The family of this 91-nucleotide sequence is "freshwater-2 RNA". The family's RNA type in Rfam is cis-regulatory element.
[Rfam]
RNA sequence: CAACGCAAUGGUGCGUUUUAUGCUGGUCGGGAAACCCAACAGCGUAGCAGAAUAGAACCUGCAUUGGACUUCUUUAAGGAGAAAACAAAUG
Numbered sequence: 001c002a003a004c005g006c007a008a009u010g011g012u013g014c015g016u017u018u019u020a021u022g023c024u025g026g027u028c029g030g031g032a033a034a035c036c037c038a039a040c041a042g043c044g045u046a047g048c049a050g051a052a053u054a055g056a057a058c059c060u061g062c063a064u065u066g067g068a069c070u071u072c073u074u075u076a077a078g079g080a081g082a083a084a085a086c087a088a089a090u091g
Stems, first nucleotide, its partner, number of pairs: 002017005019046007047062004